[Rfam]
RNA sequence: CAAGUAAAUCGCCUUAUCGCUGUUCUAUUUAUAGAAUGGAGGAAAGUCCGAACACCGUAGUGCAACAUAGUGGUUAAUGGCCACCAGCCGUGAGGUUAGGAAAAGUGCAACAGAAAGUAUGUACAGGUAAUGCUGUAGUGAAACCAGGUAAACUCUAUGUGGUGCAAUGCCAUGUAUACCAAUGUUUGAGGGCGGCACGCUCGAUGUUGGAGGGUGGGCAGCUAAAAUGUGUUAGUAAUAAUACAUUCAGAUAAAUGAUAAGGGCCUGUUCUUUUAGAAGAGGUACAGGAUUCGGCUUAUAGAUUUACUUAAAUA
Numbered sequence: 001c002a003a004g005u006a007a008a009u010c011g012c013c014u015u016a017u018c019g020c021u022g023u024u025c026u027a028u029u030u031a032u033a034g035a036a037u038g039g040a041g042g043a044a045a046g047u048c049c050g051a052a053c054a055c056c057g058u059a060g061u062g063c064a065a066c067a068u069a070g071u072g073g074u075u076a077a078u079g080g081c082c083a084c085c086a087g088c089c090g091u092g093a094g095g096u097u098a099g100g101a102a103a104a105g106u107g108c109a110a111c112a113g114a115a116a117g118u119a120u121g122u123a124c125a126g127g128u129a130a131u132g133c134u135g136u137a138g139u140g141a142a143a144c145c146a147g148g149u150a151a152a153c154u155c156u157a158u159g160u161g162g163u164g165c166a167a168u169g170c171c172a173u174g175u176a177u178a179c180c181a182a183u184g185u186u187u188g189a190g191g192g193c194g195g196c197a198c199g200c201u202c203g204a205u206g207u208u209g210g211a212g213g214g215u216g217g218g219c220a221g222c223u224a225a226a227a228u229g230u231g232u233u234a235g236u237a238a239u240a241a242u243a244c245a246u247u248c249a250g251a252u253a254a255a256u257g258a259u260a261a262g263g264g265c266c267u268g269u270u271c272u273u274u275u276a277g278a279a280g281a282g283g284u285a286c287a288g289g290a291u292u293c294g295g296c297u298u299a300u301a302g303a304u305u306u307a308c309u310u311a312a313a314u315a
Base pairs, nucleotide, nucleotide: 002310003309004308005307006306007305008304009303010302011300012263013262014261015260016259017258018257020039021038022037023036024035025034026033027032044298045297046296048295049294050293051292052291053164054163055162056161060198061197062196063195065160066159067158068157069156070084071083072082073081074080085099086097087096088095089094100155101154105153106152107149108148122137123136124135125134126133168220169219170218171217179210180209181208182207183206190202191201192200193199227246228245229244230243231242232241233240234239